[Rfam]
RNA sequence: CGGCAAUGUCUACCAUGUCGGUAUCAAAGUAGGCACUCGGUCAUGCUGUGGGCCUUAGGACCUUAGAUGCUAGUCGUCGAAAGUGUGAUGUGAGGGUGGGUUAGAUGCCCA
Numbered sequence: 001c002g003g004c005a006a007u008g009u010c011u012a013c014c015a016u017g018u019c020g021g022u023a024u025c026a027a028a029g030u031a032g033g034c035a036c037u038c039g040g041u042c043a044u045g046c047u048g049u050g051g052g053c054c055u056u057a058g059g060a061c062c063u064u065a066g067a068u069g070c071u072a073g074u075c076g077u078c079g080a081a082a083g084u085g086u087g088a089u090g091u092g093a094g095g096g097u098g099g100g101u102u103a104g105a106u107g108c109c110c111a
Stems, first nucleotide, its partner, number of pairs: 001020004007035007036094004040089008050063003054059001066078004097111005
RNA: epsC RNA
Organism: Ornithinibacillus halotolerans